[Rfam]
RNA sequence: GGUUCGGGCGCCCCCCCUUGGGACGGGGGGCAUGAAUGGGACCGAUCCGCCCCUUCGCAUGCGGCGCUGCGCGUUCCCCGACGCGCAUGCAC
Dot-bracket structure: (((((....(((((((........))))))).......)))))....................(.((((((((........)))))).)).)
Numbered sequence: 001g002g003u004u005c006g007g008g009c010g011c012c013c014c015c016c017c018u019u020g021g022g023a024c025g026g027g028g029g030g031c032a033u034g035a036a037u038g039g040g041a042c043c044g045a046u047c048c049g050c051c052c053c054u055u056c057g058c059a060u061g062c063g064g065c066g067c068u069g070c071g072c073g074u075u076c077c078c079c080g081a082c083g084c085g086c087a088u089g090c091a092c
Stems, first nucleotide, its partner, number of pairs: 001043005010031007064092001066090002068087006